[Rfam]
RNA sequence: CCCCGACCUGACGGUCGGGGCUACUUCCUGCCGGCCCUCCGGGCCU
Numbered sequence: 001c002c003c004c005g006a007c008c009u010g011a012c013g014g015u016c017g018g019g020g021c022u023a024c025u026u027c028c029u030g031c032c033g034g035c036c037c038u039c040c041g042g043g044c045c046u
Stems, first nucleotide, its partner, number of pairs: 001020008033045005
RNA: Acido-Lenti-1 RNA
Organism: Pirellulaceae bacterium